[Rfam]
RNA sequence: CAAGCCAGAAGAGGCGCGUCGCCCAGGCAGUGUGUUGGAGGAACCGAAUCCGCAGAAAACACAUCAUGGGGUGCGACGCCGAGGUACUCUCCCCGCGGAAGGGAGCGUAUCGACCGCAGGGGCUGAAUCCUCUGGGUUGUCACCAGCAUCGUUCGUAAACCGGGCGAUCAAUAUUUACCGUUUUGGCGCAGUUACAGGCGACGUCAGACCCGGUAGGUAUACAAGGUGGGGCGCUUCUGGGUGA
Numbered sequence: 001c002a003a004g005c006c007a008g009a010a011g012a013g014g015c016g017c018g019u020c021g022c023c024c025a026g027g028c029a030g031u032g033u034g035u036u037g038g039a040g041g042a043a044c045c046g047a048a049u050c051c052g053c054a055g056a057a058a059a060c061a062c063a064u065c066a067u068g069g070g071g072u073g074c075g076a077c078g079c080c081g082a083g084g085u086a087c088u089c090u091c092c093c094c095g096c097g098g099a100a101g102g103g104a105g106c107g108u109a110u111c112g113a114c115c116g117c118a119g120g121g122g123c124u125g126a127a128u129c130c131u132c133u134g135g136g137u138u139g140u141c142a143c144c145a146g147c148a149u150c151g152u153u154c155g156u157a158a159a160c161c162g163g164g165c166g167a168u169c170a171a172u173a174u175u176u177a178c179c180g181u182u183u184u185g186g187c188g189c190a191g192u193u194a195c196a197g198g199c200g201a202c203g204u205c206a207g208a209c210c211c212g213g214u215a216g217g218u219a220u221a222c223a224a225g226g227u228g229g230g231g232c233g234c235u236u237c238u239g240g241g242u243g244a
Base pairs, nucleotide, nucleotide: 006239007238008237009236010235011234016079017078018077019076020075021074022073024071030064031063032062033061034060035059036058083111084110085109086108087107089105090104091103092102093101112138113137114136115135117134118133119132120131121130122129140229141228142227143226144225
This 244-nucleotide RNA from Erwinia billingiae belongs to the Rfam family "Lysine riboswitch aptamer". Gene Ontology term of the family: lysine biosynthetic process. A search with the family's covariance model found it, with a score of 77 bits.